Shown here is a 98-nucleotide RNA sequence from Rousettus aegyptiacus, a member of the family "mir-544 microRNA precursor family". The source organism's lineage runs through Eukaryota, Deuterostomia, Gnathostomata, Tetrapoda and Rousettus. On this family, see Chiang et al., Genes Dev 2010: "Mammalian microRNAs: experimental evaluation of novel and previously annotated genes". The match comes from Rfam's covariance-model search (70 bits).
RNA sequence: AUCAGAUAGGAAUCUUGUUAAAAUGCAGGUUCUGAUUCAGUAUGUCUAGGAUGGAGCCUGAGAUUCUGCAUUUCUAACAGGCUCUCCAUUAAUGUCAA
Numbered sequence: 001a002u003c004a005g006a007u008a009g010g011a012a013u014c015u016u017g018u019u020a021a022a023a024u025g026c027a028g029g030u031u032c033u034g035a036u037u038c039a040g041u042a043u044g045u046c047u048a049g050g051a052u053g054g055a056g057c058c059u060g061a062g063a064u065u066c067u068g069c070a071u072u073u074c075u076a077a078c079a080g081g082c083u084c085u086c087c088a089u090u091a092a093u094g095u096c097a098a
Stems, first nucleotide, its partner, number of pairs: 004090002009085003014081007021073003025069005031063003